RNA sequence: AGGGGAUCAAUGAUUUUACUUUGAAAAAACUUCGCUAUCUUCCUGAAUGGGAAAUAUUGGAGAUCCCAACUGUAUAUAACACUCUGGGAUCCUUU
Numbered sequence: 001a002g003g004g005g006a007u008c009a010a011u012g013a014u015u016u017u018a019c020u021u022u023g024a025a026a027a028a029a030c031u032u033c034g035c036u037a038u039c040u041u042c043c044u045g046a047a048u049g050g051g052a053a054a055u056a057u058u059g060g061a062g063a064u065c066c067c068a069a070c071u072g073u074a075u076a077u078a079a080c081a082c083u084c085u086g087g088g089a090u091c092c093u094u095u
Stems, first nucleotide, its partner, number of pairs: 001095007
Rfam assigns this 95-nucleotide RNA from Populus tomentosa to the family "Small nucleolar RNA snoR27". The organism belongs to Populus, within Eukaryota. For this family Rfam cites "Multiple snoRNA gene clusters from Arabidopsis" (Brown et al., RNA, 2001). By type it is a C/D-box small nucleolar RNA.